[Rfam]
RNA sequence: GUCAAUGAUGAUUUCUGUCUGCAAAAUGUAUGCUCUGUGGAUUCAAGCCCCUGUUUCAGGGAGAACCUCUUGAUGAAGCAGAUAUAAUAUGACAUCAAUUGACAUAUCUGAGAC
Numbered sequence: 001g002u003c004a005a006u007g008a009u010g011a012u013u014u015c016u017g018u019c020u021g022c023a024a025a026a027u028g029u030a031u032g033c034u035c036u037g038u039g040g041a042u043u044c045a046a047g048c049c050c051c052u053g054u055u056u057c058a059g060g061g062a063g064a065a066c067c068u069c070u071u072g073a074u075g076a077a078g079c080a081g082a083u084a085u086a087a088u089a090u091g092a093c094a095u096c097a098a099u100u101g102a103c104a105u106a107u108c109u110g111a112g113a114c
Base pairs, nucleotide, nucleotide: 001114002113003112049061050060051059052058053057
Source information: The record is a 114-nucleotide RNA from Triticum urartu, which matches "Small nucleolar RNA Z278" in Rfam. A search with the family's covariance model found it, with a score of 37 bits. Pairs were carried over by alignment from the consensus structure, which was predicted with PFOLD. Rfam describes the family as follows. snoZ278 is a C/D box small nucleolar RNA. Its methylation guide targets have not been reported.